[Rfam]
Nucleotides: 061
Stems, first nucleotide, its partner, number of pairs: 006055007022044007
Number, partner (000 for none) and nucleotide at each position: 001000a002000c003000c004000c005000u006055g007054a008053u009052c010051c011050g012049g013000g014000c015000c016000c017000c018000u019000c020000u021000g022044a023043c024042g025041u026040a027039a028038g029000c030000c031000g032000c033000u034000g035000g036000c037000a038028c039027u040026u041025g042024c043023g044022u045000g046000a047000u048000g049012u050011c051010g052009g053008a054007u055006c056000u057000c058000a059000u060000u061000u